Notes:
Rfam assigns this 130-nucleotide sequence from Loxodonta africana to the family "Small nucleolar RNA SNORA14". The base pairs follow the family's consensus structure, which was predicted with RNAfold. Rfam describes the family as follows. ACA14 is a member of the H/ACA class of snoRNA that guide the sites of modification of uridines to pseudouridines. Gene Ontology terms of the family: nucleolus and RNA processing.
[Rfam]
RNA sequence: UAGCAUUCUUAAACCCCUUGGUGGCUCAGCUGUGCUUCAAAGAUAUGAGCGAAUGCUGCAGAAAUAGCAGGGAGAUCCAAAGGGCUGCGCAGGGCCUGUGGCUCAGCCUUAUUUCAUACUUGCCACAUCU
Number, nucleotide and partner (000 for none) at each position: 001u000002a000003g056004c055005a054006u053007u000008c049009u048010u047011a046012a000013a000014c000015c000016c000017c042018u041019u040020g000021g038022u000023g036024g035025c034026u000027c000028a000029g000030c000031u000032g000033u000034g025035c024036u023037u000038c021039a000040a019041a018042g017043a000044u000045a000046u011047g010048a009049g008050c000051g000052a000053a006054u005055g004056c003057u000058g000059c000060a130061g129062a128063a000064a000065u125066a000067g123068c122069a121070g120071g119072g000073a000074g000075a000076u000077c000078c000079a000080a000081a110082g109083g108084g107085c106086u105087g104088c000089g102090c101091a000092g000093g000094g000095c000096c000097u000098g000099u000100g000101g090102c089103u000104c087105a086106g085107c084108c083109u082110u081111a000112u000113u000114u000115c000116a000117u000118a000119c071120u070121u069122g068123c067124c000125a065126c000127a000128u062129c061130u060